This 75-nucleotide RNA sequence from Toxocara canis belongs to the Rfam family "mir-87 microRNA precursor family". It scores 53 bits against the family's covariance model. A reference for the family is Aravin et al. (2003), "The small RNA profile during Drosophila melanogaster development", Dev Cell.
RNA sequence: CUCCACUCCACCUGACACUAGGUCUCAACCUCUGAUGAAUGGAGCAGGUGAGCAAAGUCUCAGGUGUUGUGGCGG
Number, nucleotide and partner (000 for none) at each position: 001c000002u000003c072004c071005a070006c069007u000008c000009c066010a065011c064012c063013u062014g061015a060016c000017a058018c057019u056020a000021g000022g000023u000024c052025u051026c050027a049028a000029c048030c047031u046032c000033u000034g000035a000036u000037g000038a000039a000040u000041g000042g000043a000044g000045c000046a031047g030048g029049u027050g026051a025052g024053c000054a000055a000056a019057g018058u017059c000060u015061c014062a013063g012064g011065u010066g009067u000068u000069g006070u005071g004072g003073c000074g000075g000